[Rfam]
RNA sequence: GCGGCUCCUGAUUGUCCAAACGCAAUUCUCGAGUCUCUGGCUCCGGCCGAGAGUUGCGUCUGGACGUCCCGAGCCGC
Number, nucleotide and partner (000 for none) at each position: 001g000002c076003g075004g074005c073006u072007c071008c000009u000010g068011a067012u066013u000014g065015u064016c063017c062018a061019a000020a000021c058022g057023c056024a055025a054026u053027u052028c051029u050030c049031g048032a000033g000034u000035c000036u000037c000038u000039g000040g000041c000042u000043c000044c000045g000046g000047c000048c031049g030050a029051g028052a027053g026054u025055u024056g023057c022058g021059u000060c000061u018062g017063g016064a015065c014066g012067u011068c010069c000070c000071g007072a006073g005074c004075c003076g002077c000
Notes: The record is a 77-nucleotide RNA sequence from Rattus norvegicus, which matches "mir-219 microRNA precursor family" in Rfam. Taxonomically the source falls in Rattus (Eukaryota, Theria, Rodentia, Muridae).